[Rfam]
RNA: U7 small nuclear RNA
RNA sequence: AAGUGUUACAGCUCUUUUAGAAUUUGUCUAGCAGGUUUUCUGACUUCGGUCGGAAAACCCCU
Numbered sequence: 001a002a003g004u005g006u007u008a009c010a011g012c013u014c015u016u017u018u019a020g021a022a023u024u025u026g027u028c029u030a031g032c033a034g035g036u037u038u039u040c041u042g043a044c045u046u047c048g049g050u051c052g053g054a055a056a057a058c059c060c061c062u
Stems, first nucleotide, its partner, number of pairs: 034059011